[Rfam]
Rfam assigns this 83-nucleotide RNA sequence from Sciurus vulgaris to the family "Small nucleolar RNA SNORD11B". The family is grouped with related families in Rfam's "SNORD11 clan". A reference for the family is Yang et al. (2006), "snoSeeker: an advanced computational package for screening of guide and orphan snoRNA genes in the human genome", Nucleic Acids Res. The match comes from Rfam's covariance-model search (97 bits). Rfam classes the family as a C/D-box small nucleolar RNA.
RNA sequence: UGAUGGCAAUGAUGAUUUUUACACUAUUGUUCACCUGAUAACAAUAUGAAGGUGUUCAGUCACUACCUCAUCUGAUGCCAUCU
Numbered sequence: 001u002g003a004u005g006g007c008a009a010u011g012a013u014g015a016u017u018u019u020u021a022c023a024c025u026a027u028u029g030u031u032c033a034c035c036u037g038a039u040a041a042c043a044a045u046a047u048g049a050a051g052g053u054g055u056u057c058a059g060u061c062a063c064u065a066c067c068u069c070a071u072c073u074g075a076u077g078c079c080a081u082c083u
Stems, first nucleotide, its partner, number of pairs: 002082006